Rfam assigns this 140-nucleotide RNA from Salmo trutta to the family "Small nucleolar RNA SNORA8". Clan: SNORA8 clan. By type it is an H/ACA-box small nucleolar RNA. Its family is annotated with RNA processing and nucleolus in the Gene Ontology. ACA8 is a member of the H/ACA class of snoRNA that guide the sites of modification of uridines to pseudouridines.
[Rfam]
RNA sequence: UGCACUGUAUGGUAUCUGCAGCCAGCCCUCACCACAGGCUGUUCUGUUCAUAACACAGUGCGAGAGUGACUCUGCAUCUGGCAUCGUUAGGCUCCUGGCUGGUCUGUGCCUGGAGCCCUGGUAUUUGUGCUGAUACAAAC
Numbered sequence: 001u002g003c004a005c006u007g008u009a010u011g012g013u014a015u016c017u018g019c020a021g022c023c024a025g026c027c028c029u030c031a032c033c034a035c036a037g038g039c040u041g042u043u044c045u046g047u048u049c050a051u052a053a054c055a056c057a058g059u060g061c062g063a064g065a066g067u068g069a070c071u072c073u074g075c076a077u078c079u080g081g082c083a084u085c086g087u088u089a090g091g092c093u094c095c096u097g098g099c100u101g102g103u104c105u106g107u108g109c110c111u112g113g114a115g116c117c118c119u120g121g122u123a124u125u126u127g128u129g130c131u132g133a134u135a136c137a138a139a140c
Stems, first nucleotide, its partner, number of pairs: 002061006017052001018047004024040004065128001068125002071121002074118001080110005